The record is a 112-nucleotide sequence from Acer yangbiense, which matches "MIR162_1 microRNA precursor family" in Rfam. The organism belongs to Acer, within Eukaryota. A reference for the family is Reinhart et al. (2002), "MicroRNAs in plants", Genes Dev.

RNA sequence: GGUGAAGUCACUGGAGGCAGAGGUUCAUCGAUCUUUUCCUGGGAAAUUUUGUUGUGAAAAUGACACAAAUACAUGAAUUGAUCGAUAAACCUCUGCAUCCAGCACUUACUCU
Numbered sequence: 001g002g003u004g005a006a007g008u009c010a011c012u013g014g015a016g017g018c019a020g021a022g023g024u025u026c027a028u029c030g031a032u033c034u035u036u037u038c039c040u041g042g043g044a045a046a047u048u049u050u051g052u053u054g055u056g057a058a059a060a061u062g063a064c065a066c067a068a069a070u071a072c073a074u075g076a077a078u079u080g081a082u083c084g085a086u087a088a089a090c091c092u093c094u095g096c097a098u099c100c101a102g103c104a105c106u107u108a109c110u111c112u
Stems, first nucleotide, its partner, number of pairs: 013100003018095003022091004027086007036077003